[Rfam]
RNA sequence: GCGGAGACGCAUGUUUCCGUUCACUCCUCACACCAUGUUCCGCCCGGUCGCUCCGGGCGGUU
Numbered sequence: 001g002c003g004g005a006g007a008c009g010c011a012u013g014u015u016u017c018c019g020u021u022c023a024c025u026c027c028u029c030a031c032a033c034c035a036u037g038u039u040c041c042g043c044c045c046g047g048u049c050g051c052u053c054c055g056g057g058c059g060g061u062u
Stems, first nucleotide, its partner, number of pairs: 001020008041059007
Record summary: Shown here is a 62-nucleotide RNA from Gloeobacter violaceus, a member of the family "Cyanobacterial functional RNA 1". Rfam's curators put it in the seed alignment. By type it is a small RNA. NCBI's taxonomy places the organism under Bacteria, Cyanobacteriota, Gloeobacterales, Gloeobacteraceae, Gloeobacter violaceus.